[Rfam]
The record is a 117-nucleotide RNA from Cephalotus follicularis, which matches "MIR403 microRNA precursor family" in Rfam. The family's consensus secondary structure was predicted with WAR.
RNA sequence: ACAUGCCUCUAGUUUGUGCCUGAAUCCAACGCCAUCACAGCCGUUAAUCACUGUCCAAAAACGGAACAUAACCCCAUCUAAUGGUGUUAGAUUCACGCACAAACUCGUGAUAUCUCU
Number, nucleotide and partner (000 for none) at each position: 001a115002c000003a113004u000005g111006c000007c109008u000009c000010u000011a105012g104013u103014u102015u101016g100017u099018g098019c097020c000021u095022g094023a093024a092025u091026c090027c000028a088029a087030c086031g000032c084033c083034a000035u000036c000037a000038c000039a000040g000041c000042c000043g074044u000045u000046a000047a000048u000049c000050a000051c000052u000053g000054u000055c000056c000057a000058a000059a000060a000061a000062c000063g000064g000065a000066a000067c000068a000069u000070a000071a000072c000073c000074c043075c000076a000077u000078c000079u000080a000081a000082u000083g033084g032085u000086g030087u029088u028089a000090g026091a025092u024093u023094c022095a021096c000097g019098c018099a017100c016101a015102a014103a013104c012105u011106c000107g000108u000109g007110a000111u005112a000113u003114c000115u001116c000117u000